[Rfam]
RNA sequence: GCCACGAUGUUCACCUCGCACAAGACGGUUCUCCGUCUGAUCUUGUGAACGGGCCAAGGUCUGAGCAUAUAUCCCCCUCGACCGGCUCUCGCCGGGCCCAGUUGUCAUCAACUGAGCGGCAUACCAGACAAGUGGCUGGCUCUCGUAGUCCCAAGACCCUGCACGAGCAGGUGAGGUGCGUGGGCCAUGGCUUUGAAAUGUGCCGCGGGGAUCAGACGAGUGACGGUGCUCAUUGGGUGUGCCACCUUUUUCCUCCAACGUGUCCCUUGGGACGCCUUGUCGCCGAUGCUCGUCCUCCACAGAUAGAUAGGUUUAUAUCUUGAAGAACCGAAUGGCGCCACCCUGCCUGUCAUACCGACCAAAUGGACAACACUCUGAACUAAACGCCGCUACCUUCCCACCUGAAACCACAAACGUGAUACUAGUACUGGAUUCAACGAUCGGAGGCAGCUUGCACUGUUGACACGGUGUACCGCGUGACAAGCAUGGCUCUUGCAGCCGGGAGUCGUGGGUGACACCAUCGCUCCAUGGAAACGAGAAGGUGGGCACGUCGUCCAGUUGGGCGCAUUCGUCUUUGAGUGCAAUUCGUGGCUCGCGCUUUCGCGGCGUGAAACUUGAUUCAGACUAUUCUUGGUCUGGU
Numbered sequence: 001g002c003c004a005c006g007a008u009g010u011u012c013a014c015c016u017c018g019c020a021c022a023a024g025a026c027g028g029u030u031c032u033c034c035g036u037c038u039g040a041u042c043u044u045g046u047g048a049a050c051g052g053g054c055c056a057a058g059g060u061c062u063g064a065g066c067a068u069a070u071a072u073c074c075c076c077c078u079c080g081a082c083c084g085g086c087u088c089u090c091g092c093c094g095g096g097c098c099c100a101g102u103u104g105u106c107a108u109c110a111a112c113u114g115a116g117c118g119g120c121a122u123a124c125c126a127g128a129c130a131a132g133u134g135g136c137u138g139g140c141u142c143u144c145g146u147a148g149u150c151c152c153a154a155g156a157c158c159c160u161g162c163a164c165g166a167g168c169a170g171g172u173g174a175g176g177u178g179c180g181u182g183g184g185c186c187a188u189g190g191c192u193u194u195g196a197a198a199u200g201u202g203c204c205g206c207g208g209g210g211a212u213c214a215g216a217c218g219a220g221u222g223a224c225g226g227u228g229c230u231c232a233u234u235g236g237g238u239g240u241g242c243c244a245c246c247u248u249u250u251u252c253c254u255c256c257a258a259c260g261u262g263u264c265c266c267u268u269g270g271g272a273c274g275c276c277u278u279g280u281c282g283c284c285g286a287u288g289c290u291c292g293u294c295c296u297c298c299a300c301a302g303a304u305a306g307a308u309a310g311g312u313u314u315a316u317a318u319c320u321u322g323a324a325g326a327a328c329c330g331a332a333u334g335g336c337g338c339c340a341c342c343c344u345g346c347c348u349g350u351c352a353u354a355c356c357g358a359c360c361a362a363a364u365g366g367a368c369a370a371c372a373c374u375c376u377g378a379a380c381u382a383a384a385c386g387c388c389g390c391u392a393c394c395u396u397c398c399c400a401c402c403u404g405a406a407a408c409c410a411c412a413a414a415c416g417u418g419a420u421a422c423u424a425g426u427a428c429u430g431g432a433u434u435c436a437a438c439g440a441u442c443g444g445a446g447g448c449a450g451c452u453u454g455c456a457c458u459g460u461u462g463a464c465a466c467g468g469u470g471u472a473c474c475g476c477g478u479g480a481c482a483a484g485c486a487u488g489g490c491u492c493u494u495g496c497a498g499c500c501g502g503g504a505g506u507c508g509u510g511g512g513u514g515a516c517a518c519c520a521u522c523g524c525u526c527c528a529u530g531g532a533a534a535c536g537a538g539a540a541g542g543u544g545g546g547c548a549c550g551u552c553g554u555c556c557a558g559u560u561g562g563g564c565g566c567a568u569u570c571g572u573c574u575u576u577g578a579g580u581g582c583a584a585u586u587c588g589u590g591g592c593u594c595g596c597g598c599u600u601u602c603g604c605g606g607c608g609u610g611a612a613a614c615u616u617g618a619u620u621c622a623g624a625c626u627a628u629u630c631u632u633g634g635u636c637u638g639g640u
Base pairs, nucleotide, nucleotide: 001592002591003590004589005588006587007586009050010049011048012047013046023038024037025036026035027034028033061623062622063621064620065619074210075209076208077207084098085097086096087095088094099114100113101112102111103110104109116206117205118204119203120202121201122200139191140190141189593611594610595609596608597607598606599605
Dot-bracket structure: (((((((.(((((.........((((((....)))))).......)))))..........[[[[[........((((......(((((.....)))))((((((....)))))).(((((((................(((...............................................)))........))))))))))).......................................................................................................................................................................................................................................................................................................................................................................................)))))))(((((((.....))))))).......]]]]].................

This 640-nucleotide RNA sequence from Boletus reticuloceps belongs to the Rfam family "Nuclear RNase P".
Rfam's curators write: Ribonuclease P (RNase P) is a ubiquitous endoribonuclease, found in archaea, bacteria and eukarya as well as chloroplasts and mitochondria. Its best characterised activity is the generation of mature 5'-ends of tRNAs by cleaving the 5'-leader elements of precursor-tRNAs.
Rfam classes the family as a ribozyme.
The base pairs follow the family's consensus structure, which is taken from published work.
Lineage of the source: Eukaryota > Fungi > Agaricomycotina > Agaricomycetes > Boletus.